RNA sequence: GCGGGCCCUUGGCCAGCCUUGUGAUGUACUGCAGAGAAGUCACAGGGUUGUACCUGAGGUCUGU
Numbered sequence: 001g002c003g004g005g006c007c008c009u010u011g012g013c014c015a016g017c018c019u020u021g022u023g024a025u026g027u028a029c030u031g032c033a034g035a036g037a038a039g040u041c042a043c044a045g046g047g048u049u050g051u052a053c054c055u056g057a058g059g060u061c062u063g064u
Stems, first nucleotide, its partner, number of pairs: 001064006009057001012054001016048010026032002
This 64-nucleotide sequence from Podarcis muralis belongs to the Rfam family "MAT2A 3'UTR stem loop B". Rfam 15.1 lists 248 matches to the family in 157 species. The family's consensus secondary structure is taken from published work. A search with the family's covariance model found it, with a score of 62 bits. The family's RNA type in Rfam is cis-regulatory element.